[Rfam]
RNA: MIR8622 microRNA precursor family
RNA sequence: CUGAAAUCUGCACCGGAACCAAGCGGAAUCCAACAUUUGUCACAGCCGUGAUCACCGCCACGGACCGUAAACCCCUGAACCACGGGUUGUCAGCAGUAGCUAGUGGCAUUAGCUACUGCUGUAAACCAGCGGUUCAGGAGAUUGGUGUCAGUGGCGGCGAGCACGGCUGUGACAAAUGUUGGAUGCCGCUUGGAUCCGGCGCAGAUUUCGG
Numbered sequence: 001c002u003g004a005a006a007u008c009u010g011c012a013c014c015g016g017a018a019c020c021a022a023g024c025g026g027a028a029u030c031c032a033a034c035a036u037u038u039g040u041c042a043c044a045g046c047c048g049u050g051a052u053c054a055c056c057g058c059c060a061c062g063g064a065c066c067g068u069a070a071a072c073c074c075c076u077g078a079a080c081c082a083c084g085g086g087u088u089g090u091c092a093g094c095a096g097u098a099g100c101u102a103g104u105g106g107c108a109u110u111a112g113c114u115a116c117u118g119c120u121g122u123a124a125a126c127c128a129g130c131g132g133u134u135c136a137g138g139a140g141a142u143u144g145g146u147g148u149c150a151g152u153g154g155c156g157g158c159g160a161g162c163a164c165g166g167c168u169g170u171g172a173c174a175a176a177u178g179u180u181g182g183a184u185g186c187c188g189c190u191u192g193g194a195u196c197c198g199g200c201g202c203a204g205a206u207u208u209c210g211g
Stems, first nucleotide, its partner, number of pairs: 001211011013199005019193008028184006035177007043169008052160002055157007063149003068144003072140001074138007085127002091121011